[Rfam]
RNA sequence: AAAGGAAUGAGUUUAAGCUCAAAAUAUCCUGCAUAUAUACAUACACAAAAUUAAAAAAAUUUUUUUUUUUGUGUAAUUUUUAAAAACAGGAAGGAAGGUCUGAGAUGCUGCAUUUAAAGAGUACAGAAAAUUUGGAAGAGUUUCUCUUCAUUUUUUCUUUCUUUAAAAAUACUUUUGAGAAAAAAAAUAUUGAAAAAAUAUUAAUUAGCUAACAGAAAAAACAAUCAUAUUUUCCUUACGGAAAAUAUGGUUUUGAAAAAGCUAAUAAGCAAGUAUACAUAGGUGAGUUCGAUUUUUGAGGUUUUUCUAAAUUAUUCUUAAAUUCAUUUAAGAAAAAUUAGAAAAAUAACUUAAUUCAGACUACUCUUAAAUUCAUUCCUACAU
Dot-bracket structure: ...((((((((((((..(((((((..(((((..........(((((((((................)))))))))...........)))))....[[..[[[[[(((((((.............................................................((((....))))................(((.((((((...............((((((((((....))))))))))..........))))))))))).))))).................)))))))(((((((((.............................))))))))).......]]]]].]].....)))))))))))).....
Overview:
The record is a 384-nucleotide RNA from Plasmodium relictum, which matches "Plasmodium RNase_P" in Rfam. Its family is annotated with tRNA processing and ribonuclease P activity in the Gene Ontology. Rfam classes the family as a ribozyme.